[Rfam]
RNA sequence: AGAAAAAGAAGAGCCACAAGCCAGGGAAGAGGCAGUGCAUGGGUGGAGCCAAAACAGAUAUUUCCGUUAAUAGCUCCAUCCAUGCUCUGCCUGUUCCCAGUCUUAGUCUGUCUCUUUCUUU
Numbered sequence: 001a002g003a004a005a006a007a008g009a010a011g012a013g014c015c016a017c018a019a020g021c022c023a024g025g026g027a028a029g030a031g032g033c034a035g036u037g038c039a040u041g042g043g044u045g046g047a048g049c050c051a052a053a054a055c056a057g058a059u060a061u062u063u064c065c066g067u068u069a070a071u072a073g074c075u076c077c078a079u080c081c082a083u084g085c086u087c088u089g090c091c092u093g094u095u096c097c098c099a100g101u102c103u104u105a106g107u108c109u110g111u112c113u114c115u116u117u118c119u120u121u
Stems, first nucleotide, its partner, number of pairs: 018104003022100001024098005030092006037085006046076002
Rfam assigns this 121-nucleotide RNA sequence from Hevea brasiliensis to the family "MIR408 microRNA precursor family". A search with the family's covariance model found it, with a score of 64 bits. The family's consensus secondary structure was predicted with WAR. Gene Ontology terms of the family: RISC complex and miRNA-mediated post-transcriptional gene silencing. The organism belongs to Hevea, within Eukaryota.